[Rfam]
RNA sequence: CACACAGCGCAGAGGUGCCGCGUUCGCCGCGCCAUCAUGGCUAACGGUGGCCGGCUGAGAUCACACUCUUCGAACCUGACCCGGUUAGCACCGGCGUAGGGAGCGCUCUCGCGAACCGC
Numbered sequence: 001c002a003c004a005c006a007g008c009g010c011a012g013a014g015g016u017g018c019c020g021c022g023u024u025c026g027c028c029g030c031g032c033c034a035u036c037a038u039g040g041c042u043a044a045c046g047g048u049g050g051c052c053g054g055c056u057g058a059g060a061u062c063a064c065a066c067u068c069u070u071c072g073a074a075c076c077u078g079a080c081c082c083g084g085u086u087a088g089c090a091c092c093g094g095c096g097u098a099g100g101g102a103g104c105g106c107u108c109u110c111g112c113g114a115a116c117c118g119c
Base pairs, nucleotide, nucleotide: 006107007106008105009104010103011069012068013067014066016063017055018054019053020052075100076099077098078097081094082093083092084091

Notes:
The record is a 119-nucleotide RNA, which matches "TPP riboswitch aptamer (THI element)" in Rfam. Gene Ontology term of the family: thiamine pyrophosphate binding. Vitamin B(1) in its active form thiamin pyrophosphate (TPP) is an essential coenzyme that is synthesised by coupling of pyrimidine and thiazole moieties in bacteria.